The family of this 68-nucleotide RNA from Mycobacterium talmoniae is "Actino-pnp RNA". The family's consensus secondary structure is taken from published work. By type it is a cis-regulatory element. Taxonomically the source falls in Mycobacterium (Bacteria, Actinomycetes, Mycobacteriales, Mycobacteriaceae).
[Rfam]
RNA sequence: GGCGGUCUUCGGUAGUGGCUGCCGGACACCCACAAGGUCCGAUCCGGCAGCUUCGAUCGAUGGCCGUA
Numbered sequence: 001g002g003c004g005g006u007c008u009u010c011g012g013u014a015g016u017g018g019c020u021g022c023c024g025g026a027c028a029c030c031c032a033c034a035a036g037g038u039c040c041g042a043u044c045c046g047g048c049a050g051c052u053u054c055g056a057u058c059g060a061u062g063g064c065c066g067u068a
Stems, first nucleotide, its partner, number of pairs: 002067006009060005017052010027041001